[Rfam]
Shown here is a 127-nucleotide RNA sequence from Pantoea alhagi, a member of the family "Phenylalanine leader peptide". Rfam classes the family as a cis-regulatory leader. Its family is annotated with cellular amino acid metabolic process in the Gene Ontology. On this family, see Zurawski et al., Proc Natl Acad Sci U S A 1978: "Nucleotide sequence of the leader region of the phenylalanine operon of Escherichia coli".
RNA sequence: UAUGAUGAAAUUUUCGUUUUUCUUCGCUUUCUUUUUUACCUUCCCCUGAUUUGGGAGGCGUUUCGUCGCAGGAAAAAGAAAGCGAAGACGAACAAUAAAGCCUCCCACACCGGGAGGCUUUUUUAUU
Number, nucleotide and partner (000 for none) at each position: 001u000002a000003u000004g000005a000006u000007g000008a000009a000010a000011u000012u000013u000014u000015c000016g093017u092018u091019u090020u000021u088022c087023u086024u085025c084026g083027c082028u081029u080030u079031c078032u077033u076034u075035u000036u073037u072038a000039c000040c000041u000042u056043c055044c054045c053046c000047u000048g000049a000050u000051u000052u000053g045054g044055g043056a042057g067058g066059c065060g064061u000062u000063u000064c060065g059066u058067c057068g000069c000070a000071g000072g037073a036074a000075a034076a033077a032078g031079a030080a029081a028082g027083c026084g025085a024086a023087g022088a021089c000090g019091a018092a017093c016094a000095a000096u000097a121098a120099a119100g118101c117102c116103u115104c114105c113106c112107a000108c000109a000110c000111c000112g106113g105114g104115a103116g102117g101118c100119u099120u098121u097122u000123u000124u000125a000126u000127u000